[Rfam]
RNA: Group II catalytic intron D1-D4-3
RNA sequence: UCCAUCGCGAGGUGGAAUCUGAAGGAAGCCGGCGGCAAAUUCCUGGUCGGAGGAACACGAACAUCAUCAGGCACAAGUUGUAGGACAAGUUUGCAACACAAAACGAAAUCCCAUAAACUGAGCAGAUAGAACAGUGUAAAUGAUGCCGAUAUAUGGGAAGAAGGUUACUCGU
Number, nucleotide and partner (000 for none) at each position: 001u016002c015003c014004a013005u012006c011007g000008c000009g000010a000011g006012g005013u004014g003015g002016a001017a000018u000019c000020u000021g000022a000023a000024g000025g000026a000027a000028g172029c171030c000031g169032g168033c000034g000035g165036c164037a000038a000039a000040u159041u158042c157043c156044u155045g154046g150047u149048c148049g147050g146051a000052g000053g000054a000055a000056c000057a000058c000059g000060a000061a000062c145063a144064u143065c142066a141067u000068c000069a000070g000071g137072c136073a135074c000075a000076a000077g132078u131079u130080g000081u128082a127083g111084g110085a109086c000087a000088a000089g104090u103091u102092u101093g000094c000095a000096a000097c000098a000099c000100a000101a092102a091103a090104c089105g000106a000107a000108a000109u085110c084111c083112c000113a000114u000115a000116a000117a000118c000119u000120g000121a000122g000123c000124a000125g000126a000127u082128a081129g000130a079131a078132c077133a000134g000135u073136g072137u071138a000139a000140a000141u066142g065143a064144u063145g062146c050147c049148g048149a047150u046151a000152u000153a000154u045155g044156g043157g042158a041159a040160g000161a000162a000163g000164g036165u035166u000167a000168c032169u031170c000171g029172u028